[Rfam]
RNA sequence: AUUCCCUUUCCUUACUCCAGGAACUGCAGUUGUCGUGCAGUGUCUUGGCAUUGACUGGGGAUAGAAUAAAAGAAGCUCCUAUACCUGUUUCUAUGGAUUGAAUUUCCUUUAGAAACGGGCAUGUGAGCUUACAGA
Numbered sequence: 001a002u003u004c005c006c007u008u009u010c011c012u013u014a015c016u017c018c019a020g021g022a023a024c025u026g027c028a029g030u031u032g033u034c035g036u037g038c039a040g041u042g043u044c045u046u047g048g049c050a051u052u053g054a055c056u057g058g059g060g061a062u063a064g065a066a067u068a069a070a071a072g073a074a075g076c077u078c079c080u081a082u083a084c085c086u087g088u089u090u091c092u093a094u095g096g097a098u099u100g101a102a103u104u105u106c107c108u109u110u111a112g113a114a115a116c117g118g119g120c121a122u123g124u125g126a127g128c129u130u131a132c133a134g135a
Base pairs, nucleotide, nucleotide: 003061004060005059006058007057011053017048018047019046020045021044022043023041024040025039026038027037074129075128076127078125088114089113090112095108096107
Rfam assigns this 135-nucleotide sequence from Atractosteus spatula to the family "Small nucleolar RNA SNORA49". Rfam describes the family as follows. The snoRNA ACA49 has no identified RNA target. NB genomic sequence 1-nt different from published. The match comes from Rfam's covariance-model search (57 bits). Gene Ontology terms of the family: RNA processing and nucleolus. Rfam classes the family as an H/ACA-box small nucleolar RNA. NCBI's taxonomy places the organism under Eukaryota, Gnathostomata, Euteleostomi, Actinopteri, Atractosteus.